[Rfam]
RNA sequence: UGGGAAAUUGAUACAGUCAGAGAGAAAUACUGCUCUGUUCUGUCACUAGAUCUCCCUAUAGUAAUUAUGCCCUUUGAUGACCGGGACGAAAUGAGAGAAAUCGUAACGGACAGAUACGGGGCAGACAAUC
Numbered sequence: 001u002g003g004g005a006a007a008u009u010g011a012u013a014c015a016g017u018c019a020g021a022g023a024g025a026a027a028u029a030c031u032g033c034u035c036u037g038u039u040c041u042g043u044c045a046c047u048a049g050a051u052c053u054c055c056c057u058a059u060a061g062u063a064a065u066u067a068u069g070c071c072c073u074u075u076g077a078u079g080a081c082c083g084g085g086a087c088g089a090a091a092u093g094a095g096a097g098a099a100a101u102c103g104u105a106a107c108g109g110a111c112a113g114a115u116a117c118g119g120g121g122c123a124g125a126c127a128a129u130c
Base pairs, nucleotide, nucleotide: 002056003055004054005053007051013043014042015041016040020035021034022033068123069122070121071120072119073118081109082108083107086104087103088102089101
A member of the RNA family "Small Cajal body specific RNA 8" from Hymenochirus boettgeri, 130 nucleotides long. The family's RNA type in Rfam is small Cajal body RNA. A search with the family's covariance model found it, with a score of 110 bits. Its family is annotated with Cajal body, RNA processing and nucleolus in the Gene Ontology. Rfam describes the family as follows. scaRNAs are a specific class of small nuclear RNAs which localise to the Cajal bodies and guide the modification of RNA polymerase II transcribed spliceosomal RNAs U1, U2, U4, U5 and U12. U92 belong to the H/ACA box class of guide RNAs as it has the predicted hairpin-hinge-hairpin-tail structure, conserved H/ACA-box motifs and is found associated with GAR1. Lineage of the source: Eukaryota > Opisthokonta > Euteleostomi > Tetrapoda > Hymenochirus.